[Rfam]
RNA sequence: CCAAAGGCUCUUUUAAGAGCCACUACCUGUUCAACAAAAUGAGCUG
Numbered sequence: 001c002c003a004a005a006g007g008c009u010c011u012u013u014u015a016a017g018a019g020c021c022a023c024u025a026c027c028u029g030u031u032c033a034a035c036a037a038a039a040u041g042a043g044c045u046g
Stems, first nucleotide, its partner, number of pairs: 006021006
A member of the RNA family "Histone 3' UTR stem-loop" from Galbula dea, 46 nucleotides long. Lineage of the source: Eukaryota > Craniata > Sarcopterygii > Sauropsida > Galbula. The family's consensus secondary structure is taken from published work.